[Rfam]
RNA sequence: AACUGUUCUCAGGGCGGGGUGAAAUUCCCCACCGGCGGUAUCGGGCUUGCCCGGAGCCCGCGAGCGCUUUCAGGGCAACCUGGGAGGUCAGCAGAUCCGGUGCGAUGCCGGAGCCGACGGUAUAGUCCGGAUGGAAGAGAGCAUGC
Numbered sequence: 001a002a003c004u005g006u007u008c009u010c011a012g013g014g015c016g017g018g019g020u021g022a023a024a025u026u027c028c029c030c031a032c033c034g035g036c037g038g039u040a041u042c043g044g045g046c047u048u049g050c051c052c053g054g055a056g057c058c059c060g061c062g063a064g065c066g067c068u069u070u071c072a073g074g075g076c077a078a079c080c081u082g083g084g085a086g087g088u089c090a091g092c093a094g095a096u097c098c099g100g101u102g103c104g105a106u107g108c109c110g111g112a113g114c115c116g117a118c119g120g121u122a123u124a125g126u127c128c129g130g131a132u133g134g135a136a137g138a139g140a141g142c143a144u145g146c
Stems, first nucleotide, its partner, number of pairs: 004143007017029003031126002033116002035061004056114002064092002096112005118129003
RNA: FMN riboswitch aptamer (RFN element)
Organism: Gillisella ampelina